[Rfam]
RNA sequence: GAAACACUCUUAUGGAGCAGGACUUGCUUCAAUGGGGCUUUGGUGCUCACUGAGUCUGUACUUUGAGUGUGUCACU
Numbered sequence: 001g002a003a004a005c006a007c008u009c010u011u012a013u014g015g016a017g018c019a020g021g022a023c024u025u026g027c028u029u030c031a032a033u034g035g036g037g038c039u040u041u042g043g044u045g046c047u048c049a050c051u052g053a054g055u056c057u058g059u060a061c062u063u064u065g066a067g068u069g070u071g072u073c074a075c076u
Stems, first nucleotide, its partner, number of pairs: 001075001004072004009067004014062002017059003021056003029053003033049004037044002
Shown here is a 76-nucleotide RNA from Myotis lucifugus, a member of the family "mir-9229 microRNA precursor family". Pairs were carried over by alignment from the consensus structure, which was predicted with RNAalifold. The match comes from Rfam's covariance-model search (74 bits).